[Rfam]
This 176-nucleotide RNA from Methylomusa anaerophila belongs to the Rfam family "Lysine riboswitch aptamer". Riboswitches are metabolite binding domains within certain messenger RNAs that serve as precision sensors for their corresponding targets. Taxonomically the source falls in Methylomusa (Bacteria, Bacillati, Bacillota, Selenomonadales).
RNA sequence: UUACUGGAUAGAGGUGCGGCAGAUCAAGAGUACGCGAGGAAGCGCGGCAGGCUAUGAGUGCGCGGAAAGGGAUGACCGCCGAAGUGAAAGUUCCGGCCGGGAGCUUUUGCUGGGUUUGUGCUGAAUAAGCACAAGACUGUCAUUCCGGGGUGCCGGAGUGGAGCGCUAUCGUGCAU
Numbered sequence: 001u002u003a004c005u006g007g008a009u010a011g012a013g014g015u016g017c018g019g020c021a022g023a024u025c026a027a028g029a030g031u032a033c034g035c036g037a038g039g040a041a042g043c044g045c046g047g048c049a050g051g052c053u054a055u056g057a058g059u060g061c062g063c064g065g066a067a068a069g070g071g072a073u074g075a076c077c078g079c080c081g082a083a084g085u086g087a088a089a090g091u092u093c094c095g096g097c098c099g100g101g102a103g104c105u106u107u108u109g110c111u112g113g114g115u116u117u118g119u120g121c122u123g124a125a126u127a128a129g130c131a132c133a134a135g136a137c138u139g140u141c142a143u144u145c146c147g148g149g150g151u152g153c154c155g156g157a158g159u160g161g162a163g164c165g166c167u168a169u170c171g172u173g174c175a176u
Base pairs, nucleotide, nucleotide: 007170008169009168010167011166016079017078018077019076023073024072025071033064034063035062036061083111084110085109086108087107088106089105090104091103092102093101094100112138113137115135116134117133118132119131120130121129122128140161141160142159143158144157145156146155
Dot-bracket structure: ......(((((....((((...(((.......((((........................))))......)))..))))...((((((((((((.....))))))))))))((.((((((((.....)))))))).)).(((((((........)))))))....)))))......